[Rfam]
RNA sequence: GGUAGCCCGUGCAUCGUGGCCUCUGCCCGAACCGACCCUGACGUACUUCCCCAACGCCAGGUUCGCGAACUCGGACAGGGACCUCGAUGCUCGGGCGCACUCAG
Numbered sequence: 001g002g003u004a005g006c007c008c009g010u011g012c013a014u015c016g017u018g019g020c021c022u023c024u025g026c027c028c029g030a031a032c033c034g035a036c037c038c039u040g041a042c043g044u045a046c047u048u049c050c051c052c053a054a055c056g057c058c059a060g061g062u063u064c065g066c067g068a069a070c071u072c073g074g075a076c077a078g079g080g081a082c083c084u085c086g087a088u089g090c091u092c093g094g095g096c097g098c099a100c101u102c103a104g
Stems, first nucleotide, its partner, number of pairs: 011090006018083002021080005027074004032067001033065003037061004042056003

About this RNA: The record is a 104-nucleotide RNA sequence from Mycobacterium sp. shizuoka-1, which matches "mraW RNA" in Rfam. The family's RNA type in Rfam is cis-regulatory element. Pairs were carried over by alignment from the consensus structure, which is taken from published work.